[Rfam]
Shown here is an 81-nucleotide RNA from Castor canadensis, a member of the family "mir-194 microRNA precursor family".

RNA sequence: UGGUAACCAUCAAAAGUAACAGCACCUCCACUGGAAAUUGUACACAGUCCACAUGGAGUUGCUGUUACACUUGAUAACUCC
Numbered sequence: 001u002g003g004u005a006a007c008c009a010u011c012a013a014a015a016g017u018a019a020c021a022g023c024a025c026c027u028c029c030a031c032u033g034g035a036a037a038u039u040g041u042a043c044a045c046a047g048u049c050c051a052c053a054u055g056g057a058g059u060u061g062c063u064g065u066u067a068c069a070c071u072u073g074a075u076a077a078c079u080c081c
Stems, first nucleotide, its partner, number of pairs: 010074003016068008026058005032051003
Source information:
Lineage of the source: Eukaryota > Opisthokonta > Sarcopterygii > Boreoeutheria > Castor. The family has 46 seed sequences and 936 matches in Rfam 15.1.